The family of this 118-nucleotide RNA from Streptomyces zinciresistens is "Actinobacteria sRNA Ms_IGR-7".
RNA sequence: ACGAGGUGCCUUGCUGAUUGGUGCCGAUGGAAGCGUCGUAACUCCCAUCAUCCCAGGUCAGCGGGCACCUCUUCUAUAUCCGGGGCCAUCCGAACCGAUCGUCACACGGUGGAUCCAG
Dot-bracket structure: ..(((((((((...(((.(.(.(..(((.(.((........)).).)))..).).).)))..))))))))).........................(((..(((.....))))))...
Taxonomically the source falls in Streptomyces zinciresistens (Bacteria, Actinomycetota, Actinomycetes, Streptomyces). It is annotated as a small RNA.